[Rfam]
RNA: Lysine riboswitch aptamer
RNA sequence: GACAUUGAUAGAGGUGCAACAAUUAUGAGUACCCCAUCCGUAAUCAGGCUUUGGAUGAUGGGAAAGGAAUUGCUGCCGAAGUGGUCUUUCGCUGCCUGUGAGUAAAGACUGCUGGUCUAAUGCAGAAUAUGUAUCAGACUGUCACAUGAUAUAAAACAAGCAAAGAACAAAUCCUUGCUUGUAUGUGGAGCGCUAUCAUUACU
Numbered sequence: 001g002a003c004a005u006u007g008a009u010a011g012a013g014g015u016g017c018a019a020c021a022a023u024u025a026u027g028a029g030u031a032c033c034c035c036a037u038c039c040g041u042a043a044u045c046a047g048g049c050u051u052u053g054g055a056u057g058a059u060g061g062g063a064a065a066g067g068a069a070u071u072g073c074u075g076c077c078g079a080a081g082u083g084g085u086c087u088u089u090c091g092c093u094g095c096c097u098g099u100g101a102g103u104a105a106a107g108a109c110u111g112c113u114g115g116u117c118u119a120a121u122g123c124a125g126a127a128u129a130u131g132u133a134u135c136a137g138a139c140u141g142u143c144a145c146a147u148g149a150u151a152u153a154a155a156a157c158a159a160g161c162a163a164a165g166a167a168c169a170a171a172u173c174c175u176u177g178c179u180u181g182u183a184u185g186u187g188g189a190g191c192g193c194u195a196u197c198a199u200u201a202c203u
Base pairs, nucleotide, nucleotide: 006198007197008196009195010194011193016076017075018074020072021071022070023069024068032061033060036059037058038057080113081112082111083110084109085108086107087106088105089104114140115139116138117137118136120134121133122132123131124130142188143187144186145185146184147183148182